[Rfam]
RNA: HIV gag stem loop 3 (GSL3)
RNA sequence: AGCCAGGGGGAAAGAAAAAAUAUAGAAUGAAGCAUCUAGUAUGGGCAAGCAGGGAGUUGGAAAGAUUCGCAGUUGAUCCUAGCC
Numbered sequence: 001a002g003c004c005a006g007g008g009g010g011a012a013a014g015a016a017a018a019a020a021u022a023u024a025g026a027a028u029g030a031a032g033c034a035u036c037u038a039g040u041a042u043g044g045g046c047a048a049g050c051a052g053g054g055a056g057u058u059g060g061a062a063a064g065a066u067u068c069g070c071a072g073u074u075g076a077u078c079c080u081a082g083c084c
Base pairs, nucleotide, nucleotide: 002083003082005080006079007078008077